Record summary
This 61-nucleotide RNA sequence from Enterovirus deconjuncti belongs to the Rfam family "Enterovirus cis-acting replication element". Rfam's curators put it in the seed alignment. A reference for the family is Paul et al. (2000), "Identification of an RNA hairpin in poliovirus RNA that serves as the primary template in the in vitro uridylylation of VPg", J Virol. Rfam describes the family as follows. The first step in the replication of the plus-stranded poliovirus RNA is the synthesis of a complementary minus strand. This process is initiated by the covalent attachment of UMP to the terminal protein VPg, yielding VPgpU and VPgpUpU. A small RNA hairpin in the coding region of protein 2C as the site in PV1(M) RNA that is used as the primary template for the in vitro uridylylation. Taxonomically the source falls in Enterovirus D (Viruses, Pisoniviricetes, Picornaviridae, Enterovirus).
[Rfam]
RNA sequence: AAUUAACAACUACAUACAGUUCAAGUCCAAAUCUCGCAUUGAACCAGUAUGUUUGAUAAUA
Numbered sequence: 001a002a003u004u005a006a007c008a009a010c011u012a013c014a015u016a017c018a019g020u021u022c023a024a025g026u027c028c029a030a031a032u033c034u035c036g037c038a039u040u041g042a043a044c045c046a047g048u049a050u051g052u053u054u055g056a057u058a059a060u061a
Stems, first nucleotide, its partner, number of pairs: 013051005019044006028036001